A member of the RNA family "terC RNA" from Aquibium carbonis, 58 nucleotides long. The organism belongs to Aquibium, within Bacteria. By type it is a cis-regulatory element.
RNA sequence: CCUGCGGGCCGGGCCCCUCUGGCGAUCGUUUUGACGGUCGCGAUGUCGGACCGCAUUG
Numbered sequence: 001c002c003u004g005c006g007g008g009c010c011g012g013g014c015c016c017c018u019c020u021g022g023c024g025a026u027c028g029u030u031u032u033g034a035c036g037g038u039c040g041c042g043a044u045g046u047c048g049g050a051c052c053g054c055a056u057u058g
Stems, first nucleotide, its partner, number of pairs: 006052002009049004022041008